[Rfam]
RNA: M-box riboswitch aptamer (ykoK leader)
Organism: Streptomyces mobaraensis
RNA sequence: GAGGCACCUCGUUCGGUGAGGCGUCUUCACGGACACAGGCCACUGACCCCACGACGUCGAGAGACGCCCAGGUUCAGGACAGAUCUCCCCGGCCUAAGGGGUGAUCCCAAGUGGCUGCCCGGACCGAGGGAUUACGCCGUGGAGUGCCAAAGCUCUGACGAGUUGGGGUGAGCC
Numbered sequence: 001g002a003g004g005c006a007c008c009u010c011g012u013u014c015g016g017u018g019a020g021g022c023g024u025c026u027u028c029a030c031g032g033a034c035a036c037a038g039g040c041c042a043c044u045g046a047c048c049c050c051a052c053g054a055c056g057u058c059g060a061g062a063g064a065c066g067c068c069c070a071g072g073u074u075c076a077g078g079a080c081a082g083a084u085c086u087c088c089c090c091g092g093c094c095u096a097a098g099g100g101g102u103g104a105u106c107c108c109a110a111g112u113g114g115c116u117g118c119c120c121g122g123a124c125c126g127a128g129g130g131a132u133u134a135c136g137c138c139g140u141g142g143a144g145u146g147c148c149a150a151a152g153c154u155c156u157g158a159c160g161a162g163u164u165g166g167g168g169u170g171a172g173c174c
Base pairs, nucleotide, nucleotide: 005170006169007168008167009166010165011159012158013097015154016153017152020148021147022146025144026143027142028141029140030139031138032137039115040114041113042112043111045075046074048072049071055066056065057064058063082106083105084104085103088100089099090098117132119130